[Rfam]
Description:
The family of this 265-nucleotide part of an RNA from Thioalkalivibrio paradoxus is "Bacterial large subunit ribosomal RNA". It scores 2936 bits against the family's covariance model.
RNA sequence: GGAGAUUUGACAGGAUCUGUCCUUAGUACGAGAGGACCGGGAUGGACGUACCUCUGGUGUUCCGGUUGUCACGCCAGUGGCACUGCCGGGUAGCUAUGUACGGAAGGGAUAACCGCUGAAAGCAUCUAAGCGGGAAACCCACCUGAAGAUGAGAUCUCCCUGGGACUUCGAGUCCCCUAAAGGGCCGUUGAAGACCACAACGUUGAUAGGCUGGAUGUGGAAGCGUGGCAACGCGUGAAGCUAACCAGUACUAAUUGCCCGUGAG
Numbered sequence: 001g002g003a004g005a006u007u008u009g010a011c012a013g014g015a016u017c018u019g020u021c022c023u024u025a026g027u028a029c030g031a032g033a034g035g036a037c038c039g040g041g042a043u044g045g046a047c048g049u050a051c052c053u054c055u056g057g058u059g060u061u062c063c064g065g066u067u068g069u070c071a072c073g074c075c076a077g078u079g080g081c082a083c084u085g086c087c088g089g090g091u092a093g094c095u096a097u098g099u100a101c102g103g104a105a106g107g108g109a110u111a112a113c114c115g116c117u118g119a120a121a122g123c124a125u126c127u128a129a130g131c132g133g134g135a136a137a138c139c140c141a142c143c144u145g146a147a148g149a150u151g152a153g154a155u156c157u158c159c160c161u162g163g164g165a166c167u168u169c170g171a172g173u174c175c176c177c178u179a180a181a182g183g184g185c186c187g188u189u190g191a192a193g194a195c196c197a198c199a200a201c202g203u204u205g206a207u208a209g210g211c212u213g214g215a216u217g218u219g220g221a222a223g224c225g226u227g228g229c230a231a232c233g234c235g236u237g238a239a240g241c242u243a244a245c246c247a248g249u250a251c252u253a254a255u256u257g258c259c260c261g262u263g264a265g
Stems, first nucleotide, its partner, number of pairs: 001159008011145004017045007047102005055096003062089005067082006106140003113133005162177003179262001182260004186202005207253003210249005217241001223236005